[Rfam]
Background
Ribosomal protein L10 leader: a 124-nucleotide RNA from Lactobacillus xujianguonis. Lineage of the source: Bacteria > Bacillota > Bacilli > Lactobacillaceae > Lactobacillus.

RNA sequence: UAAUUAAUGUAAAUUCUACCUAAGACUCGGGUGGCAUGACGCCUCAAAAUCCCGCCGAGGCCAGAAGAUAAUGAAGAUUUUUAUGCUCCAUGUCUUUAUGGCAUGGAGUUUUUUUAGGCCUUAU
Numbered sequence: 001u002a003a004u005u006a007a008u009g010u011a012a013a014u015u016c017u018a019c020c021u022a023a024g025a026c027u028c029g030g031g032u033g034g035c036a037u038g039a040c041g042c043c044u045c046a047a048a049a050u051c052c053c054g055c056c057g058a059g060g061c062c063a064g065a066a067g068a069u070a071a072u073g074a075a076g077a078u079u080u081u082u083a084u085g086c087u088c089c090a091u092g093u094c095u096u097u098a099u100g101g102c103a104u105g106g107a108g109u110u111u112u113u114u115u116a117g118g119c120c121u122u123a124u
Stems, first nucleotide, its partner, number of pairs: 028054004033043003085109010
The family's RNA type in Rfam is cis-regulatory leader. The match comes from Rfam's covariance-model search (69 bits). The family's consensus secondary structure was predicted with CMfinder. A reference for the family is Iben and Draper (2008), "Specific interactions of the L10(L12)4 ribosomal protein complex with mRNA, rRNA, and L11", Biochemistry.